[Rfam]
RNA: c-di-GMP-I riboswitch aptamer
RNA sequence: AAACUUUAUAGGCAAACCUAUAGAAAUGUAGGGACGCAAAGCUAAAGGGACUAAUGUCUUAAAUGACGAUGUCAGCCAGCUGCCAGA
Numbered sequence: 001a002a003a004c005u006u007u008a009u010a011g012g013c014a015a016a017c018c019u020a021u022a023g024a025a026a027u028g029u030a031g032g033g034a035c036g037c038a039a040a041g042c043u044a045a046a047g048g049g050a051c052u053a054a055u056g057u058c059u060u061a062a063a064u065g066a067c068g069a070u071g072u073c074a075g076c077c078a079g080c081u082g083c084c085a086g087a
Stems, first nucleotide, its partner, number of pairs: 012037002017032006040081004047077002049073003056067003